[Rfam]
The record is a 156-nucleotide RNA sequence from Populus deltoides, which matches "MIR2912 microRNA precursor family" in Rfam. Taxonomically the source falls in Populus (Eukaryota, Streptophytina, Euphyllophyta, Mesangiospermae).
RNA sequence: UCUAGAACCCGAGAUAUGGAUUGAACACUGAACAGUGUCUGGGCUCCAGGACAGAUUCAGACUUCUCUUUUGAUGCUAAGAUUUGGACUCCAAAAUGGCAGAAUUGAGUUUUGGAUUCUUCAUGAAUGUUUUAGGACUAUGUCUUAGAUUUCUAUC
Numbered sequence: 001u002c003u004a005g006a007a008c009c010c011g012a013g014a015u016a017u018g019g020a021u022u023g024a025a026c027a028c029u030g031a032a033c034a035g036u037g038u039c040u041g042g043g044c045u046c047c048a049g050g051a052c053a054g055a056u057u058c059a060g061a062c063u064u065c066u067c068u069u070u071u072g073a074u075g076c077u078a079a080g081a082u083u084u085g086g087a088c089u090c091c092a093a094a095a096u097g098g099c100a101g102a103a104u105u106g107a108g109u110u111u112u113g114g115a116u117u118c119u120u121c122a123u124g125a126a127u128g129u130u131u132u133a134g135g136a137c138u139a140u141g142u143c144u145u146a147g148a149u150u151u152c153u154a155u156c
Stems, first nucleotide, its partner, number of pairs: 003154005008147001011145009021134005027129002035123003041119003045115002048112005054105005060099001062098002068092001072088001074086001
Annotation:
A search with the family's covariance model found it, with a score of 138 bits.